[Rfam]
RNA sequence: CUCCCGGCCGGAUCCCGUGGGGGGAAUCCGCCGGGGCGGGAAAGCGCCUCGCUCCGAC
Numbered sequence: 001c002u003c004c005c006g007g008c009c010g011g012a013u014c015c016c017g018u019g020g021g022g023g024g025a026a027u028c029c030g031c032c033g034g035g036g037c038g039g040g041a042a043a044g045c046g047c048c049u050c051g052c053u054c055c056g057a058c
Base pairs, nucleotide, nucleotide: 003035004034005033006032007031009030010029011028012027013026014024015023016022038049039048040047
RNA: Streptomyces RNA 2736